[Rfam]
RNA: Ribosomal protein L20 leader
Organism: Sporomusaceae bacterium FL31
RNA sequence: AAUAUGAAGUAGAGGCCAUCCGCUUCUCACCUUUCAGCGCAGUUGCAGCUAGUAAGGUUGAUAAUUGACCGUAGUUUGUUUCGACUAUUGGUGCGGGUGGCUUUUGUCACCCGCUUUUAUUAUUUUUA
Dot-bracket structure: ..........((((((.....)))))).(((....(((((....)).))).....)))..................................(((((((((....)))))))))..............